[Rfam]
RNA sequence: AAUGCAAAUUUUUAAAUCCACACAUGUUACCGACACAUACUCUUGGGUGCCGCUUGCGGUUGGGGUAUGGGGUGCAUGGAGGUCUAAC
Numbered sequence: 001a002a003u004g005c006a007a008a009u010u011u012u013u014a015a016a017u018c019c020a021c022a023c024a025u026g027u028u029a030c031c032g033a034c035a036c037a038u039a040c041u042c043u044u045g046g047g048u049g050c051c052g053c054u055u056g057c058g059g060u061u062g063g064g065g066u067a068u069g070g071g072g073u074g075c076a077u078g079g080a081g082g083u084c085u086a087a088c
Stems, first nucleotide, its partner, number of pairs: 023078005029073003036069008049060004